[Rfam]
RNA sequence: CGGAAGUGCCUUGUCGAUCGUGCGUGCUGGAAGCCUGAAGAACUCCCAUCAUCGCAGGUCACAAGGCACUUCCUCGUUUCCGGAAGGACUAUCCACAGGCGUCAGCCGGUGGAUUCGG
Numbered sequence: 001c002g003g004a005a006g007u008g009c010c011u012u013g014u015c016g017a018u019c020g021u022g023c024g025u026g027c028u029g030g031a032a033g034c035c036u037g038a039a040g041a042a043c044u045c046c047c048a049u050c051a052u053c054g055c056a057g058g059u060c061a062c063a064a065g066g067c068a069c070u071u072c073c074u075c076g077u078u079u080c081c082g083g084a085a086g087g088a089c090u091a092u093c094c095a096c097a098g099g100c101g102u103c104a105g106c107c108g109g110u111g112g113a114u115u116c117g118g
Stems, first nucleotide, its partner, number of pairs: 002073012016060002019057001021056004025051002028048001030046001032044002099116001101114003105110001

A member of the RNA family "Actinobacteria sRNA Ms_IGR-7" from Streptomyces paludis, 118 nucleotides long.
The organism belongs to Streptomyces, within Bacteria.
Rfam classes the family as a small RNA.
Pairs were carried over by alignment from the consensus structure.